Rfam assigns this 113-nucleotide RNA to the family "gltS RNA".

RNA sequence: UAACACUGACGGAAAUGUUUUUUUCACAAAUAAAUUUCCUGUGAAGAACGGAAUGGACUCAAGCUAACCACACUUGGUGAUGCUAUGAAUUAUACAAAUAAUAAAAUGACAGG
Numbered sequence: 001u002a003a004c005a006c007u008g009a010c011g012g013a014a015a016u017g018u019u020u021u022u023u024u025c026a027c028a029a030a031u032a033a034a035u036u037u038c039c040u041g042u043g044a045a046g047a048a049c050g051g052a053a054u055g056g057a058c059u060c061a062a063g064c065u066a067a068c069c070a071c072a073c074u075u076g077g078u079g080a081u082g083c084u085a086u087g088a089a090u091u092a093u094a095c096a097a098a099u100a101a102u103a104a105a106a107u108g109a110c111a112g113g
Stems, first nucleotide, its partner, number of pairs: 022046007063083002067078003
By type it is a cis-regulatory element.